[Rfam]
RNA sequence: AGCUUAGCGCAGGGGUCCUGCAACCACGUUGCGGGUGAGACAUACCCUUAGAACCUGAUCUGGAUAAUGCCAGCGCAGGGAGCGUGACACCUCCCCUC
Numbered sequence: 001a002g003c004u005u006a007g008c009g010c011a012g013g014g015g016u017c018c019u020g021c022a023a024c025c026a027c028g029u030u031g032c033g034g035g036u037g038a039g040a041c042a043u044a045c046c047c048u049u050a051g052a053a054c055c056u057g058a059u060c061u062g063g064a065u066a067a068u069g070c071c072a073g074c075g076c077a078g079g080g081a082g083c084g085u086g087a088c089a090c091c092u093c094c095c096c097u098c
Base pairs, nucleotide, nucleotide: 007085008084009083010082011048012047013046014045016042017035018034019033020032021031022030023029054079055078056077057076060073061072062071063070